[Rfam]
c-di-GMP-I riboswitch aptamer: a 93-nucleotide sequence from Fictibacillus arsenicus.
RNA sequence: UAAAUUGAAGGGUACAACUGGAGAAAUCCAGUGUCACAAAGCUAUAGGGGCUAAUGAUUGGAUUCAUCCGGUCGAUGUCAGCCAGCUGCCAUU
Numbered sequence: 001u002a003a004a005u006u007g008a009a010g011g012g013u014a015c016a017a018c019u020g021g022a023g024a025a026a027u028c029c030a031g032u033g034u035c036a037c038a039a040a041g042c043u044a045u046a047g048g049g050g051c052u053a054a055u056g057a058u059u060g061g062a063u064u065c066a067u068c069c070g071g072u073c074g075a076u077g078u079c080a081g082c083c084a085g086c087u088g089c090c091a092u093u
Base pairs, nucleotide, nucleotide: 012037013036017032018031019030020029021028022027040087041086042085043084047083048082049079050078051077056073057072058071059070060069061068062067